[Rfam]
RNA sequence: CCAAUUUUGUAGCAAGUUGUAGCCUAGGGAUAGUGCGAGUUUGGUAACGAACUGGUGCGAAGCUUCCUGACAAUGUACUCCCUUUCGAGGUGCGUUAUUCGUGUGAGCGAAUAGGGCAGAUAUCGGUAAUGACAACCGAUUGAGAGG
Numbered sequence: 001c002c003a004a005u006u007u008u009g010u011a012g013c014a015a016g017u018u019g020u021a022g023c024c025u026a027g028g029g030a031u032a033g034u035g036c037g038a039g040u041u042u043g044g045u046a047a048c049g050a051a052c053u054g055g056u057g058c059g060a061a062g063c064u065u066c067c068u069g070a071c072a073a074u075g076u077a078c079u080c081c082c083u084u085u086c087g088a089g090g091u092g093c094g095u096u097a098u099u100c101g102u103g104u105g106a107g108c109g110a111a112u113a114g115g116g117c118a119g120a121u122a123u124c125g126g127u128a129a130u131g132a133c134a135a136c137c138g139a140u141u142g143a144g145a146g147g
Base pairs, nucleotide, nucleotide: 002019003018004017005016006015007014027068028067029066030065033058034057035056036055038053039052040051041050042049043048081090082089083088091118092117093116101108102107122140123139124138125137126136127135
A member of the RNA family "Group II catalytic intron D1-D4-7" from Vibrio thalassae, 147 nucleotides long. Pairs were carried over by alignment from the consensus structure. Gene Ontology term of the family: Group II intron splicing. About the family: Group II introns are found in rRNA, tRNA and mRNA of organelles in fungi, plants and protists, and also in mRNA in bacteria. A reference for the family is Bonen and Vogel (2001), "The ins and outs of group II introns", Trends Genet.